The record is a 111-nucleotide RNA from Mucispirillum schaedleri, which matches "SAM riboswitch aptamer (S box leader)" in Rfam. The family's consensus secondary structure is taken from published work. Taxonomically the source falls in Mucispirillum schaedleri (Bacteria, Deferribacterales, Mucispirillaceae, Mucispirillum). About the family: The SAM riboswitch is found upstream of a number of genes which code for proteins involved in methionine or cysteine biosynthesis in Gram-positive bacteria. The SAM riboswitch acts at the level of transcription termination control.
RNA sequence: ACCUUAUCGUGAGCGGUGGAGGGACAGGCCCUUUGAAGCUGCAGCAACCGGCUAUUUCUUUAACAGCAGAUGGUGCUAAUUCUUGCUCCAUAUUUAGGAGAGAGAUAAGUU
Numbered sequence: 001a002c003c004u005u006a007u008c009g010u011g012a013g014c015g016g017u018g019g020a021g022g023g024a025c026a027g028g029c030c031c032u033u034u035g036a037a038g039c040u041g042c043a044g045c046a047a048c049c050g051g052c053u054a055u056u057u058c059u060u061u062a063a064c065a066g067c068a069g070a071u072g073g074u075g076c077u078a079a080u081u082c083u084u085g086c087u088c089c090a091u092a093u094u095u096a097g098g099a100g101a102g103a104g105a106u107a108a109g110u111u
Stems, first nucleotide, its partner, number of pairs: 001111001003109006013042005021031003025085004043077004048073002051067003081103001086100004